[Rfam]
RNA sequence: GGCGGGGUCGCAUAGUGGACUAGUGCAGACGCCUUGAAAGCGUCCGAGCGGGCAACCGUUCCGUGGGUUCGAAUCCCACCCUCGCCG
Numbered sequence: 001g002g003c004g005g006g007g008u009c010g011c012a013u014a015g016u017g018g019a020c021u022a023g024u025g026c027a028g029a030c031g032c033c034u035u036g037a038a039a040g041c042g043u044c045c046g047a048g049c050g051g052g053c054a055a056c057c058g059u060u061c062c063g064u065g066g067g068u069u070c071g072a073a074u075c076c077c078a079c080c081c082u083c084g085c086c087g
Stems, first nucleotide, its partner, number of pairs: 001086007010026004028044005063079005
The record is an 87-nucleotide sequence from Desertihabitans brevis, which matches "tRNA" in Rfam. By type it is a transfer RNA.